Notes: Rfam assigns this 208-nucleotide RNA sequence from Candidatus Izimoplasma sp. HR2 to the family "T-box leader". The organism belongs to Candidatus Izemoplasma, within Bacteria. By type it is a cis-regulatory leader. The family's consensus secondary structure is taken from published work. Uncharged tRNA acts as the effector for transcription antitermination of genes in the T-box leader family. T-boxes are found upstream of many aminoacyl-tRNA synthetase genes and some amino acid biosynthetic genes usually in Gram-positive bacteria. The anticodon of a specific tRNA base pairs to a specifier sequence within the T-box motif, and the NCCA acceptor tail of the tRNA base pairs to a conserved bulge in the T-box antiterminator hairpin.

RNA sequence: UAUAAAACUGGGAACUAGAAGUAGUAGUAAAAUGUUUAUUUUAAGAGACUUAGUGGUGGUGAGAACUAAGAAUAAACAUUUACGAAUUAGUCUAGGGAGUUGCUUACUCGCAACACGUGAGAGUAAGACGUUAACUUGCGUUAAAAGUUUAAGUGCUAGGGAUGUCCUAGAACAAAGGUGGUACCGCGGAAAUUAUUUCGUCCUUAUU
Numbered sequence: 001u002a003u004a005a006a007a008c009u010g011g012g013a014a015c016u017a018g019a020a021g022u023a024g025u026a027g028u029a030a031a032a033u034g035u036u037u038a039u040u041u042u043a044a045g046a047g048a049c050u051u052a053g054u055g056g057u058g059g060u061g062a063g064a065a066c067u068a069a070g071a072a073u074a075a076a077c078a079u080u081u082a083c084g085a086a087u088u089a090g091u092c093u094a095g096g097g098a099g100u101u102g103c104u105u106a107c108u109c110g111c112a113a114c115a116c117g118u119g120a121g122a123g124u125a126a127g128a129c130g131u132u133a134a135c136u137u138g139c140g141u142u143a144a145a146a147g148u149u150u151a152a153g154u155g156c157u158a159g160g161g162a163u164g165u166c167c168u169a170g171a172a173c174a175a176a177g178g179u180g181g182u183a184c185c186g187c188g189g190a191a192a193u194u195a196u197u198u199c200g201u202c203c204u205u206a207u208u
Stems, first nucleotide, its partner, number of pairs: 007100002015095004027083005038073003049070006103127007129140003156170006175205004186201005